[Rfam]
RNA sequence: CACAAAUCCCAGGGGCGCCACCUUGGCGAGUCGGGCCGUAAGCAUCGUGCGGGCCCGGCCAGGGCGGCUGAGAUCGCAAUUGUGCGGGUCCCUUUGAACCUGAUCCGGCUAACACCGGCGUAGGGAGAGGCCAGUCAUGAACC
Number, nucleotide and partner (000 for none) at each position: 001c000002a000003c000004a000005a000006a000007u130008c129009c000010c127011a093012g092013g091014g090015g000016c087017g068018c067019c066020a000021c064022c063023u062024u061025g060026g059027c058028g000029a000030g000031u000032c000033g000034g000035g000036c000037c000038g000039u000040a000041a000042g000043c000044a000045u000046c000047g000048u000049g000050c000051g000052g000053g000054c000055c000056c000057g000058g027059c026060c025061a024062g023063g022064g021065c000066g019067g018068c017069u000070g000071a000072g000073a000074u000075c086076g085077c084078a083079a000080u000081u000082g000083u078084g077085c076086g075087g016088g000089u000090c014091c013092c012093u011094u000095u000096g000097a000098a000099c124100c123101u122102g121103a000104u000105c118106c117107g116108g115109c000110u000111a000112a000113c000114a000115c108116c107117g106118g105119c000120g000121u102122a101123g100124g099125g000126a000127g010128a000129g008130g007131c000132c000133a000134g000135u000136c000137a000138u000139g000140a000141a000142c000143c000
The record is a 143-nucleotide RNA from Rhizomicrobium palustre, which matches "TPP riboswitch aptamer (THI element)" in Rfam. A search with the family's covariance model found it, with a score of 68 bits.